[Rfam]
RNA sequence: UAUUAUCUUCAGGGCAGGGUGAAAUUCCCUAUCGGUGGUAUAGCCCACGAGCUUUUUGCAUGAUUUGGUGAAAUUCCAAGGCCGACAGUUAUAGUCUGGAUAGAAGAAGAUAAUA
Number, nucleotide and partner (000 for none) at each position: 001u000002a000003u113004u112005a111006u110007c109008u108009u107010c106011a000012g000013g000014g000015c000016a000017g029018g028019g027020u000021g000022a000023a000024a000025u000026u000027c019028c018029c017030u000031a095032u094033c084034g083035g048036u047037g046038g045039u000040a000041u000042a000043g082044c081045c038046c037047a036048c035049g000050a000051g000052c000053u058054u000055u000056u000057u000058g053059c000060a000061u000062g000063a000064u080065u079066u078067g077068g076069u000070g000071a000072a000073a000074u000075u000076c068077c067078a066079a065080g064081g044082c043083c034084g033085a000086c098087a097088g096089u000090u000091a000092u000093a000094g032095u031096c088097u087098g086099g000100a000101u000102a000103g000104a000105a000106g010107a009108a008109g007110a006111u005112a004113a003114u000115a000
This 115-nucleotide RNA sequence from Epulopiscium sp. Nele67-Bin005 belongs to the Rfam family "FMN riboswitch aptamer (RFN element)".
The match comes from Rfam's covariance-model search (114 bits).